[Rfam]
RNA sequence: GCGGAUAAAUGUCCGCUGGAAUGUGGCCUUAAGGCUGAACCAUAAA
Number, nucleotide and partner (000 for none) at each position: 001g016002c015003g014004g013005a012006u000007a000008a000009a000010u000011g000012u005013c004014c003015g002016c001017u042018g041019g040020a000021a000022u000023g000024u000025g036026g035027c034028c033029u000030u000031a000032a000033g028034g027035c026036u025037g000038a000039a000040c019041c018042a017043u000044a000045a000046a000

This 46-nucleotide sequence belongs to the Rfam family "eL15-Euryarchaeota ribosomal protein leader".
Rfam's curators put it in the seed alignment.
Rfam classes the family as a cis-regulatory leader.
For this family Rfam cites "Discovery of 20 novel ribosomal leader candidates in bacteria and archaea" (Eckert and Weinberg, BMC Microbiol, 2020).
The family's consensus secondary structure is taken from published work.